[Rfam]
RNA sequence: CAACUAAGUUAUUCGCGCCGCAUCGGGGAGUAACCACCGCUGCCGGGCAGCGGGGUCGCGUCAACAGGCUCGCGCAUCCGGCGCGUGGCGCGACCAGCCGGCGGACGCCGGCUC
Numbered sequence: 001c002a003a004c005u006a007a008g009u010u011a012u013u014c015g016c017g018c019c020g021c022a023u024c025g026g027g028g029a030g031u032a033a034c035c036a037c038c039g040c041u042g043c044c045g046g047g048c049a050g051c052g053g054g055g056u057c058g059c060g061u062c063a064a065c066a067g068g069c070u071c072g073c074g075c076a077u078c079c080g081g082c083g084c085g086u087g088g089c090g091c092g093a094c095c096a097g098c099c100g101g102c103g104g105a106c107g108c109c110g111g112c113u114c
Stems, first nucleotide, its partner, number of pairs: 038052003054095010071085005096113007
Background
A member of the RNA family "Manganese Mn2+ riboswitch aptamer (yybP-ykoY)" from Methylobrevis albus, 114 nucleotides long. Its family is annotated with manganese ion binding in the Gene Ontology. Rfam 15.1 lists 1,126 matches to the family in 1,062 species. A reference for the family is Argaman et al. (2001), "Novel small RNA-encoding genes in the intergenic regions of Escherichia coli", Curr Biol. The pairing is the family consensus, mapped onto this sequence. A search with the family's covariance model found it, with a score of 46 bits.